About this RNA
A member of the RNA family "FMN riboswitch aptamer (RFN element)" from Nocardioides jejuensis, 144 nucleotides long. A search with the family's covariance model found it, with a score of 92 bits. The family's consensus secondary structure is taken from published work. Taxonomically the source falls in Nocardioides (Bacteria, Bacillati, Actinomycetota, Nocardioidaceae).
[Rfam]
RNA sequence: UCGCGUGCACUGGGGGCGGUGAAAUUCCGCACCGGCGGUGACUGGAUCAGUCCAGAAGUCCGCGACCCGACCGCAGCCAGCGGCCGGUUGACGAAGUGAGAAUCUUCGACCGACGGUCAGAGUCCGGAUGGAAAGCGCACGCGG
Numbered sequence: 001u002c003g004c005g006u007g008c009a010c011u012g013g014g015g016g017c018g019g020u021g022a023a024a025u026u027c028c029g030c031a032c033c034g035g036c037g038g039u040g041a042c043u044g045g046a047u048c049a050g051u052c053c054a055g056a057a058g059u060c061c062g063c064g065a066c067c068c069g070a071c072c073g074c075a076g077c078c079a080g081c082g083g084c085c086g087g088u089u090g091a092c093g094a095a096g097u098g099a100g101a102a103u104c105u106u107c108g109a110c111c112g113a114c115g116g117u118c119a120g121a122g123u124c125c126g127g128a129u130g131g132a133a134a135g136c137g138c139a140c141g142c143g144g
Stems, first nucleotide, its partner, number of pairs: 003142006010135001017029003031123002033112002035063004058110002067087002092108005114126003